Shown here is a 175-nucleotide sequence from Sarcina ventriculi, a member of the family "Lysine riboswitch aptamer".
The base pairs follow the family's consensus structure, which is taken from published work.
RNA sequence: AAUUAAGGUAGAGGUGCGGUUAUUAAAAGUAUUUAAACUUUUAUGUUAAGCAAAUGAGGUUUAAUGAAAGGAAUAAUCGCCGAAGUGUUUAGCUAAAGCUUUAAUGCUAGAUGCUGGGGGUAUAUAAAAUAUAUAUAUCACUGUCACAAAAAAUUUGUGGAGAGCUAUCAUCUAA
Numbered sequence: 001a002a003u004u005a006a007g008g009u010a011g012a013g014g015u016g017c018g019g020u021u022a023u024u025a026a027a028a029g030u031a032u033u034u035a036a037a038c039u040u041u042u043a044u045g046u047u048a049a050g051c052a053a054a055u056g057a058g059g060u061u062u063a064a065u066g067a068a069a070g071g072a073a074u075a076a077u078c079g080c081c082g083a084a085g086u087g088u089u090u091a092g093c094u095a096a097a098g099c100u101u102u103a104a105u106g107c108u109a110g111a112u113g114c115u116g117g118g119g120g121u122a123u124a125u126a127a128a129a130u131a132u133a134u135a136u137a138u139c140a141c142u143g144u145c146a147c148a149a150a151a152a153a154u155u156u157g158u159g160g161a162g163a164g165c166u167a168u169c170a171u172c173u174a175a
Stems, first nucleotide, its partner, number of pairs: 007169005016080009033064007084115010116142002119139008144160007